[Rfam]
Record summary
The record is a 286-nucleotide RNA sequence from Paramicrosporidium saccamoebae, which matches "Metazoan signal recognition particle RNA" in Rfam. From the family's description: The signal recognition particle (SRP) is a universally conserved ribonucleoprotein. It scores 88 bits against the family's covariance model. Rfam classes the family as a non-coding RNA gene. The source organism's lineage runs through Eukaryota, Opisthokonta, Fungi, Rozellomycota and Paramicrosporidium. The family's consensus secondary structure is taken from published work. For this family Rfam cites "Towards the structure of the mammalian signal recognition particle" (Wild et al., Curr Opin Struct Biol, 2002).

Nucleotides: 286
Base pairs, nucleotide, nucleotide: 001040004017005016006015007014008013023039024038025037045283046282047281048280049279055278056277058275059274060273061272062267063266064265065264067262068261069260071259073257075255076254077253078252079251080250081249082248083247086240087239089237090236096233097232098231099230100229101228102227104224105223106222108219109218110217111216112215113214114213115212116211117156118155119154120153122151123150124149125148126147127146128145129144130143131142132141133140134139166209167208168207169206170205175202177200178199179198184193185192186191
Number, partner (000 for none) and nucleotide at each position: 001040a002000a003000a004017u005016a006015a007014u008013u009000g010000g011000g012000u013008a014007a015006u016005u017004a018000a019000u020000a021000a022000a023039g024038u025037a026000a027000a028000a029000a030000u031000c032000c033000c034000u035000g036000g037025u038024a039023c040001u041000c042000u043000u044000u045283a046282g047281u048280u049279g050000g051000a052000c053000a054000g055278u056277u057000c058275g059274u060273c061272u062267c063266u064265g065264u066000g067262a068261a069260c070000c071259a072000c073257u074000g075255g076254u077253u078252c079251u080250g081249a082248a083247u084000c085000g086240g087239c088000a089237c090236a091000a092000u093000g094000c095000c096233u097232g098231c099230a100229c101228c102227c103000g104224c105223c106222a107000g108219a109218c110217a111216c112215g113214g114213g115212g116211u117156c118155a119154a120153c121000a122151u123150u124149g125148c126147u127146a128145g129144c130143g131142g132141c133140u134139g135000g136000g137000a138000a139134c140133g141132g142131u143130u144129g145128c146127u147126a148125g149124c150123g151122a152000g153120g154119u155118u156117g157000g158000g159000u160000c161000a162000a163000u164000g165000a166209g167208g168207a169206c170205g171000g172000u173000a174000c175202u176000g177200c178199g179198c180000g181000a182000g183000g184193g185192u186191g187000g188000a189000a190000a191186c192185a193184c194000a195000g196000c197000a198179g199178c200177g201000a202175a203000a204000a205170c206169g207168u208167u209166c210000c211116g212115c213114c214113c215112u216111g217110u218109g219108u220000g221000g222106u223105g224104g225000a226000a227102g228101g229100g230099u231098g232097c233096a234000u235000a236090u237089g238000g239087g240086c241000a242000c243000a244000g245000u246000c247083a248082u249081u250080c251079a252078g253077a254076a255075c256000a257073a258000a259071u260069g261068u262067u263000g264065g265064c266063a267062g268000a269000g270000u271000a272061g273060g274059g275058c276000a277056a278055a279049c280048a281047a282046c283045u284000u285000u286000u